[Rfam]
RNA sequence: AAGGGGAAAGCCGAAAACCCUCGUAUUAACAGAGUAGGCA
Numbered sequence: 001a002a003g004g005g006g007a008a009a010g011c012c013g014a015a016a017a018c019c020c021u022c023g024u025a026u027u028a029a030c031a032g033a034g035u036a037g038g039c040a
Base pairs, nucleotide, nucleotide: 002021003020004019005018010039011038012037
DUF805b RNA: a 40-nucleotide RNA.
Rfam's curators put it in the seed alignment.
Rfam classes the family as a cis-regulatory element.